[Rfam]
Shown here is a 94-nucleotide RNA from Zizania palustris, a member of the family "Small nucleolar RNA R64/Z200 family". Pairs were carried over by alignment from the consensus structure, which was predicted with PFOLD. The source organism's lineage runs through Eukaryota, Viridiplantae, Magnoliopsida, Liliopsida and Zizania. By type it is a C/D-box small nucleolar RNA.

RNA sequence: CAAAUGCUAUGAGGAAUCAAGAAAGUUUUUGCAUGUCAGACUUCAGAGAUAUCACAGCAUCAGUGAGAAGAAGCUUUCAUAUUAUGUGCAUUAU
Number, nucleotide and partner (000 for none) at each position: 001c000002a000003a092004a091005u090006g089007c088008u000009a000010u000011g000012a000013g000014g000015a000016a000017u000018c000019a000020a000021g000022a000023a000024a000025g000026u000027u000028u000029u000030u000031g000032c000033a000034u000035g000036u000037c000038a000039g000040a000041c000042u000043u000044c000045a000046g000047a000048g061049a060050u059051a000052u000053c000054a000055c000056a000057g000058c000059a050060u049061c048062a000063g000064u000065g000066a000067g000068a000069a000070g000071a000072a000073g000074c000075u000076u000077u000078c000079a000080u000081a000082u000083u000084a000085u000086g000087u000088g007089c006090a005091u004092u003093a000094u000